[Rfam]
RNA sequence: CGGCUGUAAUGGUCGCAAUGAUUGGAAGAUAUCAAUAUCCCGACAUCUUUCUACCAUGGCGUUCGCAAGAACACUUCCAUCGGUGCCCAGUUCGAACACUGCGGUGGAUGCCCACUCGUGCAGGCAACUCACGAUGCUGGUGUGUUCCUAAGCAAUGAAGAAUACGCUUCAGGGAGGUUUCACUCUGCAAAGAAUUCUUCACCGUGGUGUGGCGGUAUUGGAUUACAUCGUUGUGUGGUUUGGUGGUAUGGGUUGGGUUGAGUGUCAACUUGUUUU
Numbered sequence: 001c002g003g004c005u006g007u008a009a010u011g012g013u014c015g016c017a018a019u020g021a022u023u024g025g026a027a028g029a030u031a032u033c034a035a036u037a038u039c040c041c042g043a044c045a046u047c048u049u050u051c052u053a054c055c056a057u058g059g060c061g062u063u064c065g066c067a068a069g070a071a072c073a074c075u076u077c078c079a080u081c082g083g084u085g086c087c088c089a090g091u092u093c094g095a096a097c098a099c100u101g102c103g104g105u106g107g108a109u110g111c112c113c114a115c116u117c118g119u120g121c122a123g124g125c126a127a128c129u130c131a132c133g134a135u136g137c138u139g140g141u142g143u144g145u146u147c148c149u150a151a152g153c154a155a156u157g158a159a160g161a162a163u164a165c166g167c168u169u170c171a172g173g174g175a176g177g178u179u180u181c182a183c184u185c186u187g188c189a190a191a192g193a194a195u196u197c198u199u200c201a202c203c204g205u206g207g208u209g210u211g212g213c214g215g216u217a218u219u220g221g222a223u224u225a226c227a228u229c230g231u232u233g234u235g236u237g238g239u240u241u242g243g244u245g246g247u248a249u250g251g252g253u254u255g256g257g258u259u260g261a262g263u264g265u266c267a268a269c270u271u272g273u274u275u276u
Stems, first nucleotide, its partner, number of pairs: 001015004020274003024270002028266001030264002032261003041255004049248001051246006058075002061072004078233002081230005087221005092215003096210009106147001108143005113136001116134005122129002148152001156201007167192003174185003
Dot-bracket structure: ((((.......))))....(((.((..(.(((((......((((....(.((((((.((.((((....)))).))..((.(((((.((((((((.(((((((((.(.((((((..(((((.((....))))))).)..)))))...)(...)...(((((((....(((....(((......)))....)))..))))))))))))))))..))).)))))....))))).)).......)))))).)...))))...))).)).)..)).)))..
The family of this 276-nucleotide RNA sequence from Amylocarpus encephaloides is "Fungal signal recognition particle RNA".
Pairs were carried over by alignment from the consensus structure, which is taken from published work.
The organism belongs to Amylocarpus, within Eukaryota.
The family is grouped with related families in Rfam's "SRP clan".
The family's RNA type in Rfam is non-coding RNA gene.
Gene Ontology terms of the family: signal recognition particle, endoplasmic reticulum targeting, signal recognition particle, plasma membrane targeting and SRP-dependent cotranslational protein targeting to membrane, signal sequence recognition.